[Rfam]
Nucleotides: 172
Stems, first nucleotide, its partner, number of pairs: 002170010013157002017154002032139003035135004040130002057115003061111005070104007081093004
Number, partner (000 for none) and nucleotide at each position: 001000g002170c003169g004168g005167g006166a007165c008164u009163g010162c011161c012000c013157g014156g015000c016000a017154c018153g019000a020000g021000c022000c023000g024000a025000u026000c027000g028000a029000a030000c031000a032139u033138c034137c035135c036134u037133g038132a039000g040130g041129c042000u043000a044000u045000a046000a047000g048000c049000a050000a051000u052000c053000c054000a055000a056000a057115g058114g059113g060000a061111g062110c063109u064108g065107u066000c067000c068000c069000u070104g071103c072102c073101c074100u075099g076098g077000a078000a079000c080000a081093c082092c083091g084090g085000u086000c087000c088000g089000u090084c091083c092082g093081g094000g095000g096000a097000a098076c099075c100074g101073g102072g103071g104070u105000a106000a107065a108064c109063g110062g111061c112000a113059c114058c115057c116000a117000c118000c119000u120000g121000a122000c123000g124000u125000u126000g127000a128000g129041g130040c131000g132038u133037c134036a135035g136000a137034g138033g139032a140000u141000u142000u143000c144000c145000c146000c147000g148000g149000c150000a151000a152000a153018c154017g155000a156014c157013c158000c159000a160000u161011g162010g163009u164008g165007g166006u167005c168004c169003c170002g171000c172000c